A member of the RNA family "mir-711 microRNA precursor family" from Nannospalax galili, 69 nucleotides long.
Gene Ontology terms of the family: RISC complex and miRNA-mediated post-transcriptional gene silencing.
A reference for the family is Zhou et al. (2009), "In silico detection and characteristics of novel microRNA genes in the Equus caballus genome using an integrated ab initio and comparative genomic approach", Genomics.
[Rfam]
RNA sequence: UCUUGCUUUGCAUUUCUUCUCAGGGUGCUACAGGCAAAGCUGGGGACCAUGGGAGAGACGUAAGUGAGG
Numbered sequence: 001u002c003u004u005g006c007u008u009u010g011c012a013u014u015u016c017u018u019c020u021c022a023g024g025g026u027g028c029u030a031c032a033g034g035c036a037a038a039g040c041u042g043g044g045g046a047c048c049a050u051g052g053g054a055g056a057g058a059c060g061u062a063a064g065u066g067a068g069g
Base pairs, nucleotide, nucleotide: 002068003067005065006064007063008062013058014057015056016055017054018053019052020051024048025047026046028044029043031042032041033040